[Rfam]
RNA sequence: CAAUAUGUUCGUAAGAACAAAGAGAAGCAGAUCUAUCUUACCCGCUAAGUAAUCACUACGCAAUGGGA
Numbered sequence: 001c002a003a004u005a006u007g008u009u010c011g012u013a014a015g016a017a018c019a020a021a022g023a024g025a026a027g028c029a030g031a032u033c034u035a036u037c038u039u040a041c042c043c044g045c046u047a048a049g050u051a052a053u054c055a056c057u058a059c060g061c062a063a064u065g066g067g068a
Stems, first nucleotide, its partner, number of pairs: 004021001006019005041067003049059003
Shown here is a 68-nucleotide RNA sequence from Musa balbisiana, a member of the family "Plastid-clpP 5UTR RNA". The base pairs follow the family's consensus structure, which was predicted with LocARNA. It scores 61 bits against the family's covariance model. Taxonomically the source falls in Musa (Eukaryota, Embryophyta, Tracheophyta, Liliopsida).